[Rfam]
RNA sequence: GUCGUCGUGAGGCGGGGUCUGAAGGAAGCGUGUAGCAAAGCCAUGACCUGACGAACAGAAACCAGAUGCGAGGCCUACCUGGCCGGACGAGCAAGCAAUUGAUUGCGAAGUCCAUAGCCAUCAAGGGCUGGGGUGGUAGAUCUGGCAGGUGUGUGGGGAAGGCGGUUGCGC
Numbered sequence: 001g002u003c004g005u006c007g008u009g010a011g012g013c014g015g016g017g018u019c020u021g022a023a024g025g026a027a028g029c030g031u032g033u034a035g036c037a038a039a040g041c042c043a044u045g046a047c048c049u050g051a052c053g054a055a056c057a058g059a060a061a062c063c064a065g066a067u068g069c070g071a072g073g074c075c076u077a078c079c080u081g082g083c084c085g086g087a088c089g090a091g092c093a094a095g096c097a098a099u100u101g102a103u104u105g106c107g108a109a110g111u112c113c114a115u116a117g118c119c120a121u122c123a124a125g126g127g128c129u130g131g132g133g134u135g136g137u138a139g140a141u142c143u144g145g146c147a148g149g150u151g152u153g154u155g156g157g158g159a160a161g162g163c164g165g166u167u168g169c170g171c
Base pairs, nucleotide, nucleotide: 002015003014004013005012006011028171029170030169031168032167035163036162041156042155043154044153045152046150047149048148049147050146062145063144064143065142066141067140073137074136075135078132079131080130081129082128083127085113086112087111088110091106092105093104094103
A member of the RNA family "Group II catalytic intron D1-D4-3" from Paraburkholderia sp. BL23I1N1, 171 nucleotides long.